A member of the RNA family "Plastid-psbA-1 3UTR RNA" from Lepidium meyenii, 127 nucleotides long.
By type it is a cis-regulatory element.
Rfam describes the family as follows. Plastid psbA-1 is a non-coding RNA (ncRNA) present in plastids. It was identified in inverted repeat sequences in the 3 prime untranslate region (3UTR) of photosystem II quinone-binding protein (psbA).
For this family Rfam cites "Retrograde signaling in plants: A critical review focusing on the GUN pathway and beyond" (Richter et al., Plant Commun, 2023).
Lineage of the source: Eukaryota > Streptophyta > Streptophytina > Pentapetalae > Lepidium.
Rfam's curators put it in the seed alignment.
[Rfam]
RNA sequence: GUUGAGGCUCCAUCUACAAAUGGAUAAUUCUUUAGUGUUAGUCUAGACCUAGUUUAGUAUUAGUAAUAGUAAAAAACGAGCAAUAUAAGCCUUCUUUAAAUUUAAAGAAGGCUUAUAUUGCUCAUUU
Numbered sequence: 001g002u003u004g005a006g007g008c009u010c011c012a013u014c015u016a017c018a019a020a021u022g023g024a025u026a027a028u029u030c031u032u033u034a035g036u037g038u039u040a041g042u043c044u045a046g047a048c049c050u051a052g053u054u055u056a057g058u059a060u061u062a063g064u065a066a067u068a069g070u071a072a073a074a075a076a077c078g079a080g081c082a083a084u085a086u087a088a089g090c091c092u093u094c095u096u097u098a099a100a101u102u103u104a105a106a107g108a109a110g111g112c113u114u115a116u117a118u119u120g121c122u123c124a125u126u127u
Stems, first nucleotide, its partner, number of pairs: 009024005074127003078123009088113003092109005
Dot-bracket structure: ........(((((......))))).................................................(((.(((((((((.(((.(((((........))))).))).))))))))).)))